[Rfam]
A member of the RNA family "Plastid-rpl16 group II-D1 intron" from Conopholis americana, 46 nucleotides long. Rfam describes the family as follows. Plastid-rpl16 is a non-coding RNA (ncRNA) recognised in plastids. It was recognised in and intronic region of a ribosome rpl16 gene. The organism belongs to Conopholis, within Eukaryota. Rfam links the family to the GO term Group II intron splicing. On this family, see Richter et al., Plant Commun 2023: "Retrograde signaling in plants: A critical review focusing on the GUN pathway and beyond". Rfam's curators put it in the seed alignment.

Nucleotides: 046
Base pairs, nucleotide, nucleotide: 006040007039009037010036011035013033014032015031016030
Number, partner (000 for none) and nucleotide at each position: 001000a002000a003000a004000g005000c006040u007039u008000c009037g010036g011035g012000c013033c014032a015031a016030u017000a018000a019000a020000g021000a022000c023000u024000a025000a026000u027000a028000a029000g030016g031015u032014u033013g034000a035011c036010u037009c038000a039007a040006a041000a042000a043000u044000a045000a046000a